[Rfam]
RNA sequence: AAGCUAGCCAGACAUACGUGAGUUGCAAGUACUGGAUAGCUUAGUCUCACA
Dot-bracket structure: [......[[.[[[.....((((......]]..]]].....]....))))..

Overview: Exoribonuclease-resistant RNA (xrRNA) plant-infecting virus (class 3): a 51-nucleotide sequence from Polerovirus BVG. The family's consensus secondary structure is taken from published work. Lineage of the source: Viruses > Riboviria > Pisuviricota > Polerovirus > Polerovirus BVG. Rfam's curators write: Exoribonuclease-resistant RNA (xrRNA) plant-infecting virus (class 3) is a ncRNA that was reported in Plant viruses. Rfam classes the family as a cis-regulatory element. On this family, see Gezelle et al., bioRxiv [Preprint] 2024: "The pseudoknot structure of a viral RNA reveals a conserved mechanism for programmed exoribonuclease resistance".